[Rfam]
RNA sequence: UAAUUUUAUCCUAAGUCAAACUUUUCAACUUUAACCAAAUUUAUAGAAAUAUGCACCAAUAUCUACAAUAACAAAUAAAUGCACAUUUAAAGAAACUAAUUUGACGUUGUAGAUAUUAGCAUAUUUUUCUAUAAACAUAGUUAAAAUUAGAGAAGUUUGACUUAGAACAAAACUAA
Numbered sequence: 001u002a003a004u005u006u007u008a009u010c011c012u013a014a015g016u017c018a019a020a021c022u023u024u025u026c027a028a029c030u031u032u033a034a035c036c037a038a039a040u041u042u043a044u045a046g047a048a049a050u051a052u053g054c055a056c057c058a059a060u061a062u063c064u065a066c067a068a069u070a071a072c073a074a075a076u077a078a079a080u081g082c083a084c085a086u087u088u089a090a091a092g093a094a095a096c097u098a099a100u101u102u103g104a105c106g107u108u109g110u111a112g113a114u115a116u117u118a119g120c121a122u123a124u125u126u127u128u129c130u131a132u133a134a135a136c137a138u139a140g141u142u143a144a145a146a147u148u149a150g151a152g153a154a155g156u157u158u159g160a161c162u163u164a165g166a167a168c169a170a171a172a173c174u175a176a
Stems, first nucleotide, its partner, number of pairs: 005171003009167001011165016031144005042131002045128005052121003058117010072103005
Rfam assigns this 176-nucleotide RNA sequence from Oryza meyeriana to the family "MIR1435 microRNA precursor family".
Pairs were carried over by alignment from the consensus structure, which was predicted with RNAalifold.
Gene Ontology terms of the family: RISC complex and miRNA-mediated post-transcriptional gene silencing.